[Rfam]
RNA: Ribosomal protein L10 leader
Organism: Anaeromassilibacillus sp. An172
RNA sequence: GAAAAACAAAUCGCUGUUCUAAAGACAGCAGGCGUUUUACGUAAAGGCCUUGUGCCUGCCUGCCGAGGAAGAAGCAUGAUACAAUUUCAGUAAUUAUUUUAUGAUUGUAUAAUACCGCCUCUUCCGAUUGGGAGAGGCUGCUUUUUUUGAACU
Numbered sequence: 001g002a003a004a005a006a007c008a009a010a011u012c013g014c015u016g017u018u019c020u021a022a023a024g025a026c027a028g029c030a031g032g033c034g035u036u037u038u039a040c041g042u043a044a045a046g047g048c049c050u051u052g053u054g055c056c057u058g059c060c061u062g063c064c065g066a067g068g069a070a071g072a073a074g075c076a077u078g079a080u081a082c083a084a085u086u087u088c089a090g091u092a093a094u095u096a097u098u099u100u101a102u103g104a105u106u107g108u109a110u111a112a113u114a115c116c117g118c119c120u121c122u123u124c125c126g127a128u129u130g131g132g133a134g135a136g137g138c139u140g141c142u143u144u145u146u147u148u149g150a151a152c153u
Stems, first nucleotide, its partner, number of pairs: 028063006034040002115140001117138008